[Rfam]
RNA sequence: AAUAGAGAGAGGACGGCUGACGGUAGGGCUUCGGCCCGGCCGAGGAAGUUCCCUCCUCCGCGGGCAGGACGAGCCGGGAAAUCCGGCAGGGCGAGAGCCCUGGCAAGGGCCCAGAAACGACACAGUUCCGGUAAACUAGGAUGAUCCGUAUGUCGGUGACGUUCCCGGAGAUCUGGUGAAACGGCGACUCCUCGUCGGAGCAAGCUCGCACAACCGGGAUGACAUGCCUGUGACCGGUGGGUAGAGUGCGUUAGUUGAAUGCCGUCUGAAACAGAAGGGGGGCUACUACUCUCAAUU
Numbered sequence: 001a002a003u004a005g006a007g008a009g010a011g012g013a014c015g016g017c018u019g020a021c022g023g024u025a026g027g028g029c030u031u032c033g034g035c036c037c038g039g040c041c042g043a044g045g046a047a048g049u050u051c052c053c054u055c056c057u058c059c060g061c062g063g064g065c066a067g068g069a070c071g072a073g074c075c076g077g078g079a080a081a082u083c084c085g086g087c088a089g090g091g092c093g094a095g096a097g098c099c100c101u102g103g104c105a106a107g108g109g110c111c112c113a114g115a116a117a118c119g120a121c122a123c124a125g126u127u128c129c130g131g132u133a134a135a136c137u138a139g140g141a142u143g144a145u146c147c148g149u150a151u152g153u154c155g156g157u158g159a160c161g162u163u164c165c166c167g168g169a170g171a172u173c174u175g176g177u178g179a180a181a182c183g184g185c186g187a188c189u190c191c192u193c194g195u196c197g198g199a200g201c202a203a204g205c206u207c208g209c210a211c212a213a214c215c216g217g218g219a220u221g222a223c224a225u226g227c228c229u230g231u232g233a234c235c236g237g238u239g240g241g242u243a244g245a246g247u248g249c250g251u252u253a254g255u256u257g258a259a260u261g262c263c264g265u266c267u268g269a270a271a272c273a274g275a276a277g278g279g280g281g282g283c284u285a286c287u288a289c290u291c292u293c294a295a296u297u
Base pairs, nucleotide, nucleotide: 001297002296003295005293006292007291008290009289010287011286012266013265014264015263016262017261021042022041023040024039047284048283049282051281052280053279054278055277056200057199058198059197061230062229063228064227065226068196069195070194071193072192073087074086075085076084077083088101089100090099091098092097102191103190109185110184123175124174125173126170127169128168129167130166131165133163146156147155204247205246206245207244213238214237215236216235217234
Annotation:
Shown here is a 297-nucleotide RNA from Candidatus Methanomethylophilus sp. 1R26, a member of the family "Archaeal RNase P". Clan: RNaseP clan. It scores 197 bits against the family's covariance model. By type it is a ribozyme. Lineage of the source: Archaea > Methanobacteriati > Thermoplasmatota > Methanomassiliicoccales > Methanomethylophilus. For this family Rfam cites "Ribonuclease P: unity and diversity in a tRNA processing ribozyme" (Frank and Pace, Annu Rev Biochem, 1998). From the family's description: Ribonuclease P (RNase P) is a ubiquitous endoribonuclease, found in archaea, bacteria and eukarya as well as chloroplasts and mitochondria.